Annotation:
mir-458 microRNA precursor family: a 78-nucleotide RNA from Sylvietta virens. It scores 63 bits against the family's covariance model.

RNA sequence: GAGCCGGUGGCAGCGCCGUUCCCAGAGCUGUCACCCCUCUCACUGUCACAGCUCUGGGGAUGGCUCUGCCACCAGCAC
Numbered sequence: 001g002a003g004c005c006g007g008u009g010g011c012a013g014c015g016c017c018g019u020u021c022c023c024a025g026a027g028c029u030g031u032c033a034c035c036c037c038u039c040u041c042a043c044u045g046u047c048a049c050a051g052c053u054c055u056g057g058g059g060a061u062g063g064c065u066c067u068g069c070c071a072c073c074a075g076c077a078c
Stems, first nucleotide, its partner, number of pairs: 003076002007072003011068003015064007024055008
The family's consensus secondary structure was predicted with RNAalifold.
The organism belongs to Sylvietta, within Eukaryota.